[Rfam]
This 81-nucleotide sequence from Oryctolagus cuniculus belongs to the Rfam family "Small nucleolar RNA SNORD115".
A reference for the family is Cavaille et al. (2000), "Identification of brain-specific and imprinted small nucleolar RNA genes exhibiting an unusual genomic organization", Proc Natl Acad Sci U S A.
The match comes from Rfam's covariance-model search (84 bits).

RNA sequence: GAGUCGAUGAUGAGACCUCAUACUGUCUCGAAAAAAUAUGAUGACUUAAAAAUCAUGCUCAAUAGGGUUAUGCUGAGGCCC
Numbered sequence: 001g002a003g004u005c006g007a008u009g010a011u012g013a014g015a016c017c018u019c020a021u022a023c024u025g026u027c028u029c030g031a032a033a034a035a036a037u038a039u040g041a042u043g044a045c046u047u048a049a050a051a052a053u054c055a056u057g058c059u060c061a062a063u064a065g066g067g068u069u070a071u072g073c074u075g076a077g078g079c080c081c
Base pairs, nucleotide, nucleotide: 001081003079004078005075006074008072009071